[Rfam]
RNA sequence: AGAGCAUUGAGAGGAUCCUUCCUUAGUACGAGAGGACCGGGAAGGACGCACCGCUGGUGUACCAGUUAUCGUGCCAACGGUAAACGCUGGGUAGCCAAGUGCGGAGAGGAUAACCGCUGAAAGCAUCUAAGUGGGAAGCCCACCUCAAGAUGAGUGCUCUCAUGGCAUAAGCCAGUAAGGUCACGGGAAGACCACCCGUUAAUAGGCGGUAGAUGGAAGUGUGGUAACACAUGCAGUCGAGCCGUACUAAUAGACCGAGG
Numbered sequence: 001a002g003a004g005c006a007u008u009g010a011g012a013g014g015a016u017c018c019u020u021c022c023u024u025a026g027u028a029c030g031a032g033a034g035g036a037c038c039g040g041g042a043a044g045g046a047c048g049c050a051c052c053g054c055u056g057g058u059g060u061a062c063c064a065g066u067u068a069u070c071g072u073g074c075c076a077a078c079g080g081u082a083a084a085c086g087c088u089g090g091g092u093a094g095c096c097a098a099g100u101g102c103g104g105a106g107a108g109g110a111u112a113a114c115c116g117c118u119g120a121a122a123g124c125a126u127c128u129a130a131g132u133g134g135g136a137a138g139c140c141c142a143c144c145u146c147a148a149g150a151u152g153a154g155u156g157c158u159c160u161c162a163u164g165g166c167a168u169a170a171g172c173c174a175g176u177a178a179g180g181u182c183a184c185g186g187g188a189a190g191a192c193c194a195c196c197c198g199u200u201a202a203u204a205g206g207c208g209g210u211a212g213a214u215g216g217a218a219g220u221g222u223g224g225u226a227a228c229a230c231a232u233g234c235a236g237u238c239g240a241g242c243c244g245u246a247c248u249a250a251u252a253g254a255c256c257g258a259g260g
Base pairs, nucleotide, nucleotide: 001160002159003158004157005156006155007154008153011146012145013144014143017045018044019043020042021041022040023039047103048102049101050100051099055097056096057095062090063089064088065087066086067082068081069080070079071078072077108140109139114134115133116132117131118130163174164173165172176258179256180255181254182253183199184198185197186196187195203249204248205247206245207244208243209242210241212238213237219232220231221230222229223228
Dot-bracket structure: ((((((((..((((..(((((((...............))))))).(((((...(((....(((((((((((....))))))...)))))....))).)))))....((....(((((...........)))))....))..))))......))))))))..(((......))).(..(((((((((.......)))))...((((((((.((.....(((((....)))))....))..))))).)))...)))).)..
About this RNA: Rfam assigns this 260-nucleotide part of an RNA from Acaryochloris marina to the family "Bacterial large subunit ribosomal RNA". Gene Ontology terms of the family: ribosome and structural constituent of ribosome. It scores 2827 bits against the family's covariance model. Rfam 15.1 lists 51,934 matches to the family in 10,816 species.